Shown here is a 150-nucleotide RNA from Pelomicrobium methylotrophicum, a member of the family "Group II catalytic intron D1-D4-7". The match comes from Rfam's covariance-model search (114 bits). Group II introns are found in rRNA, tRNA and mRNA of organelles in fungi, plants and protists, and also in mRNA in bacteria. The base pairs follow the family's consensus structure. A reference for the family is Bonen and Vogel (2001), "The ins and outs of group II introns", Trends Genet. Lineage of the source: Bacteria > Pseudomonadati > Pseudomonadota > Hydrogenophilia > Pelomicrobium.

RNA sequence: CCUACUGUUCCUCCAGUAGUAGCCUAGAGCGGCAUGCGGACUGGGCAACUAGUCUGUAUGAAGCCCACUCGACAAUGUACCCCAUUCCGAAAGGAUGAAGUCGAACCCGCGAGGGCAAAACGGAGACGCGAGCGUCACGCGUCAGGGGGC
Numbered sequence: 001c002c003u004a005c006u007g008u009u010c011c012u013c014c015a016g017u018a019g020u021a022g023c024c025u026a027g028a029g030c031g032g033c034a035u036g037c038g039g040a041c042u043g044g045g046c047a048a049c050u051a052g053u054c055u056g057u058a059u060g061a062a063g064c065c066c067a068c069u070c071g072a073c074a075a076u077g078u079a080c081c082c083c084a085u086u087c088c089g090a091a092a093g094g095a096u097g098a099a100g101u102c103g104a105a106c107c108c109g110c111g112a113g114g115g116c117a118a119a120a121c122g123g124a125g126a127c128g129c130g131a132g133c134g135u136c137a138c139g140c141g142u143c144a145g146g147g148g149g150c
Stems, first nucleotide, its partner, number of pairs: 002019006028069002031066002033060012083097005107114002125143006